[Rfam]
RNA sequence: UGCUUGCUGUGAUGAAUCACAAGGACGGUAUCUGAGUAUGGUUGCUCUUGAAAAGGCCUCCUUCCUUGAUUAACAUCCUAAACUGAUCAUAUAUUCUGAGCAAGCA
Numbered sequence: 001u002g003c004u005u006g007c008u009g010u011g012a013u014g015a016a017u018c019a020c021a022a023g024g025a026c027g028g029u030a031u032c033u034g035a036g037u038a039u040g041g042u043u044g045c046u047c048u049u050g051a052a053a054a055g056g057c058c059u060c061c062u063u064c065c066u067u068g069a070u071u072a073a074c075a076u077c078c079u080a081a082a083c084u085g086a087u088c089a090u091a092u093a094u095u096c097u098g099a100g101c102a103a104g105c106a
Stems, first nucleotide, its partner, number of pairs: 001106007036065001038063001040061002

Source information
The family of this 106-nucleotide RNA from Triticum urartu is "Small nucleolar RNA Z118/Z121/Z120". Rfam 15.1 lists 435 matches to the family in 31 species. Rfam classes the family as a C/D-box small nucleolar RNA.